[Rfam]
RNA sequence: CGAAUACUAAACGAAGUUUCUCGUAUAAUGCCGGGGAUAUGGCCCGGAAGUUUCUACCCAAGAACCAUAAAUUUUUGGACUACGAGCGAGCUGAAAGCGGAA
Numbered sequence: 001c002g003a004a005u006a007c008u009a010a011a012c013g014a015a016g017u018u019u020c021u022c023g024u025a026u027a028a029u030g031c032c033g034g035g036g037a038u039a040u041g042g043c044c045c046g047g048a049a050g051u052u053u054c055u056a057c058c059c060a061a062g063a064a065c066c067a068u069a070a071a072u073u074u075u076u077g078g079a080c081u082a083c084g085a086g087c088g089a090g091c092u093g094a095a096a097g098c099g100g101a102a
Base pairs, nucleotide, nucleotide: 018088020086021085022084023083024082025081029049031047032046033045034044035043058078059077060076061075062074063073064072
Dot-bracket structure: .................(.((((((...(.(((((.......))))).)........(((((((.......)))))))..)))))).)..............

This 102-nucleotide sequence from Paenibacillus flagellatus belongs to the Rfam family "Purine riboswitch aptamer".
The match comes from Rfam's covariance-model search (80 bits).